[Rfam]
RNA sequence: CCUUAACAGUUACAUUAUGUAAUUGACACUUGCCACGAUAAGGAGAUUUAAAUG
Dot-bracket structure: .((((.(((((.........))))).............))))............
A member of the RNA family "Mu-gpT-DE RNA", 54 nucleotides long.